[Rfam]
The family of this 117-nucleotide RNA from Nesterenkonia xinjiangensis is "SAM (S-adenosyl methionine) riboswitch aptamer". Pairs were carried over by alignment from the consensus structure, which is taken from published work. Clan: SAM clan. Rfam describes the family as follows. SAM-IV is a mRNA element that regulates gene expression via direct sensing of S-adenosylmethionine (SAM or AdoMet). SAM-IV riboswitches share conserved nucleotide positions with the previously described SAM-I riboswitches sequence analysis and molecular recognition experiments suggest that SAM-I and SAM-IV riboswitches share similar ligand binding sites, but have different scaffolds.
RNA sequence: GGUCAAGAGUGCCAGCGUCAAACCCCGGUUUGCUGGCCGGCAACCCUCCAGUUCGCGGUGGGGUGCCCCGGGUGACGACCAGGCCCUGCCGCCCAUGCGGUGGGGCAAGCGCGGGCC
Dot-bracket structure: ((((....(.((((((....((......)).)))))))(((..(((.((.......))..))).))).........))))..((((((((((....))))))))))...........